Source information
This 68-nucleotide RNA sequence from Mycobacterium sp. MCS belongs to the Rfam family "ASdes TB sRNA". The family's RNA type in Rfam is small RNA. It is one of the family's seed sequences. For this family Rfam cites "Identification of small RNAs in Mycobacterium tuberculosis" (Arnvig and Young, Mol Microbiol, 2009). The base pairs follow the family's consensus structure, which is taken from published work. The source organism's lineage runs through Bacteria, Actinomycetota, Mycobacteriales, Mycobacteriaceae and Mycobacterium.
RNA sequence: AGCUCCACCGGGUCGACCGCGCGGGUGACGGUGAGGUAGUCGCGCAGCGCGAUGCCGUGCCGGUUCUC
Numbered sequence: 001a002g003c004u005c006c007a008c009c010g011g012g013u014c015g016a017c018c019g020c021g022c023g024g025g026u027g028a029c030g031g032u033g034a035g036g037u038a039g040u041c042g043c044g045c046a047g048c049g050c051g052a053u054g055c056c057g058u059g060c061c062g063g064u065u066c067u068c
Base pairs, nucleotide, nucleotide: 004063005062008059012029013028016026017025018024035056036055037054038053040052041051042050043049044048